[Rfam]
The family of this 232-nucleotide RNA from Paenibacillus cremeus is "Group II catalytic intron D1-D4-6".
The literature on the family includes a 2003 paper in Crit Rev Biochem Mol Biol by Lehmann and Schmidt, "Group II introns: structure and catalytic versatility of large natural ribozymes".
The family has 174 seed sequences and 1,617 matches in Rfam 15.1.
Taxonomically the source falls in Paenibacillus (Bacteria, Bacillota, Bacilli, Paenibacillaceae).
The match comes from Rfam's covariance-model search (138 bits).
RNA sequence: CGAUUCCCACCCGGGUAAAGGGUACAGCCACCCUACCCGGAAUCGAGUCUUGAACACGCAAAGGUAACGAUGCGGGUUAAGCGUAGACAGAGCGACGUCCAGGCCGUAACGCAAGUGAAGCGAUAGAGCCUCGUGAGAUGUCCGGGGGCCGACAAGGUCGAAAACUUGGAAGGCUAUAGUAGAUUUCCGUAAUAGGCGAGGAAAUCGGAGACCCCGGCGGGGUCUGAGAGCA
Numbered sequence: 001c002g003a004u005u006c007c008c009a010c011c012c013g014g015g016u017a018a019a020g021g022g023u024a025c026a027g028c029c030a031c032c033c034u035a036c037c038c039g040g041a042a043u044c045g046a047g048u049c050u051u052g053a054a055c056a057c058g059c060a061a062a063g064g065u066a067a068c069g070a071u072g073c074g075g076g077u078u079a080a081g082c083g084u085a086g087a088c089a090g091a092g093c094g095a096c097g098u099c100c101a102g103g104c105c106g107u108a109a110c111g112c113a114a115g116u117g118a119a120g121c122g123a124u125a126g127a128g129c130c131u132c133g134u135g136a137g138a139u140g141u142c143c144g145g146g147g148g149c150c151g152a153c154a155a156g157g158u159c160g161a162a163a164a165c166u167u168g169g170a171a172g173g174c175u176a177u178a179g180u181a182g183a184u185u186u187c188c189g190u191a192a193u194a195g196g197c198g199a200g201g202a203a204a205u206c207g208g209a210g211a212c213c214c215c216g217g218c219g220g221g222g223u224c225u226g227a228g229a230g231c232a
Base pairs, nucleotide, nucleotide: 012039013038014037015036016035020033021032022031027197028196043091044090047088048087049086050085051083052082053078054077055076057074058073059072060071063068126224128223129222130221131220132219133218142217143216144215145214146213147212148174149173150172153168154167155166156165180208182206183205184204185203186202187201188200